[Rfam]
The record is a 55-nucleotide sequence from Nocardia donostiensis, which matches "F6 TB sRNA" in Rfam. Rfam 15.1 lists 310 matches to the family in 304 species. A reference for the family is Arnvig and Young (2009), "Identification of small RNAs in Mycobacterium tuberculosis", Mol Microbiol. It scores 54 bits against the family's covariance model.
RNA sequence: AGAUUGGCUCCGUGUAGUUGCCUGACCCCCGACCCGGCAACUGCGCGGAGCCUCA
Numbered sequence: 001a002g003a004u005u006g007g008c009u010c011c012g013u014g015u016a017g018u019u020g021c022c023u024g025a026c027c028c029c030c031g032a033c034c035c036g037g038c039a040a041c042u043g044c045g046c047g048g049a050g051c052c053u054c055a
Stems, first nucleotide, its partner, number of pairs: 007051016